A member of the RNA family "ffh sRNA" from Pseudooceanicola batsensis, 52 nucleotides long.
RNA sequence: CGUUGCGGGGAUCGCCACCAGUCAGCGCGUCGCGCCCACUGGUGCAAUCGUC
Numbered sequence: 001c002g003u004u005g006c007g008g009g010g011a012u013c014g015c016c017a018c019c020a021g022u023c024a025g026c027g028c029g030u031c032g033c034g035c036c037c038a039c040u041g042g043u044g045c046a047a048u049c050g051u052c
Base pairs, nucleotide, nucleotide: 016044017043018042019041020040021039022038025035026034027033028032

Record summary
Taxonomically the source falls in Pseudooceanicola batsensis (Bacteria, Pseudomonadati, Alphaproteobacteria, Paracoccaceae). It is one of the family's seed sequences.